[Rfam]
RNA sequence: CAUGACCGGCUGGACACUCUCGUGCCCGGCCCACAAGUGGAGGCUCCGUUCUCCCACCUGGUCGGCUUCAGGCCGGCAGGUCUCCGGUCAGGCGGCGCCCAUCGUUCCGUACGGACGAUGGAGCUGCCCGAUAUGCCCCGCGGAUCGCACCGCGGCGUUCCGGUAUUUAUGGAGCCCCGCCUGUGUCCCGUCCGGGGCAUUUUUU
Numbered sequence: 001c002a003u004g005a006c007c008g009g010c011u012g013g014a015c016a017c018u019c020u021c022g023u024g025c026c027c028g029g030c031c032c033a034c035a036a037g038u039g040g041a042g043g044c045u046c047c048g049u050u051c052u053c054c055c056a057c058c059u060g061g062u063c064g065g066c067u068u069c070a071g072g073c074c075g076g077c078a079g080g081u082c083u084c085c086g087g088u089c090a091g092g093c094g095g096c097g098c099c100c101a102u103c104g105u106u107c108c109g110u111a112c113g114g115a116c117g118a119u120g121g122a123g124c125u126g127c128c129c130g131a132u133a134u135g136c137c138c139c140g141c142g143g144a145u146c147g148c149a150c151c152g153c154g155g156c157g158u159u160c161c162g163g164u165a166u167u168u169a170u171g172g173a174g175c176c177c178c179g180c181c182u183g184u185g186u187c188c189c190g191u192c193c194g195g196g197g198c199a200u201u202u203u204u205u
Stems, first nucleotide, its partner, number of pairs: 004089006012027002028082004034060002037057004041052002061077007091128005099121008135198006141190003148185003152180004157175005

Notes
The family of this 205-nucleotide sequence from Streptomyces albireticuli is "Streptomyces RNA 1601". The match comes from Rfam's covariance-model search (161 bits). Identified by deep sequencing of transcriptome at the end of exponential growth phase. Appears longer on northern blot than sequencing transcript. Streptomyces specific.